The family of this 100-nucleotide sequence is "Purine riboswitch aptamer". Pairs were carried over by alignment from the consensus structure, which is taken from published work. A search with the family's covariance model found it, with a score of 55 bits.
[Rfam]
RNA sequence: UAUGUAGUUGAAGCGACUAUUCGUAUAAUUACCCAAAUUGGUGGGAAGUCUCUACGCUGUGGCCCGUAAAGCCAGCACUACGAAUAAAUCUUAACUUCUU
Numbered sequence: 001u002a003u004g005u006a007g008u009u010g011a012a013g014c015g016a017c018u019a020u021u022c023g024u025a026u027a028a029u030u031a032c033c034c035a036a037a038u039u040g041g042u043g044g045g046a047a048g049u050c051u052c053u054a055c056g057c058u059g060u061g062g063c064c065c066g067u068a069a070a071g072c073c074a075g076c077a078c079u080a081c082g083a084a085u086a087a088a089u090c091u092u093a094a095c096u097u098c099u100u
Base pairs, nucleotide, nucleotide: 018086019085020084021083022082023081024080025079029047030046032045033044034043035042056076057075058074059073062072063071